[Rfam]
RNA sequence: GUUAUCGGAUUCACCUUAAUCCACAUAUGUUGGAGUGGAUUAGAGUAUAAUUUAGUUCAAAUUCCACUUCAACCUAUCCCAAUACAUGUGGAUUGAUGCGAAUCCAACU
Numbered sequence: 001g002u003u004a005u006c007g008g009a010u011u012c013a014c015c016u017u018a019a020u021c022c023a024c025a026u027a028u029g030u031u032g033g034a035g036u037g038g039a040u041u042a043g044a045g046u047a048u049a050a051u052u053u054a055g056u057u058c059a060a061a062u063u064c065c066a067c068u069u070c071a072a073c074c075u076a077u078c079c080c081a082a083u084a085c086a087u088g089u090g091g092a093u094u095g096a097u098g099c100g101a102a103u104c105c106a107a108c109u
Stems, first nucleotide, its partner, number of pairs: 005107001007105006014098001016096011028084005035077004040072002043069001045067002